Source information: A member of the RNA family "EFASI RNA" from Yersinia intermedia, 155 nucleotides long.
[Rfam]
RNA sequence: UCGACUCGGUAACGAUGGCAGCGUCAGUGAAAGCUGACGGAUGGAGGUGACCUGGCAAUUGUCAGGAACCGGUGCAAACCGCAAGCAGCUCAGCGAGCUGUGGAUACCUCAUAAGAACUUAACAUUUUGCCACCCCGAUGUGCAGUUAUCAGUCG
Dot-bracket structure: .((((..((((((.....((.((((((......))))))..))((((....(((((....)))))....................((((((...)))))...)...))))..................................)))))).))))
The sequence is in the family's curated seed alignment.